[Rfam]
RNA: Small nucleolar RNA Z161/Z228
RNA sequence: AUACCAAAUGAUGAAAAUGGAUUUUAAUAUCUCACGAUGGUCAUCAGAGACUUUGUGUCGAUGUUGAUCCAAUAAUUCUGAUGUUU
Numbered sequence: 001a002u003a004c005c006a007a008a009u010g011a012u013g014a015a016a017a018u019g020g021a022u023u024u025u026a027a028u029a030u031c032u033c034a035c036g037a038u039g040g041u042c043a044u045c046a047g048a049g050a051c052u053u054u055g056u057g058u059c060g061a062u063g064u065u066g067a068u069c070c071a072a073u074a075a076u077u078c079u080g081a082u083g084u085u086u
Base pairs, nucleotide, nucleotide: 001086003084004083049059050058051057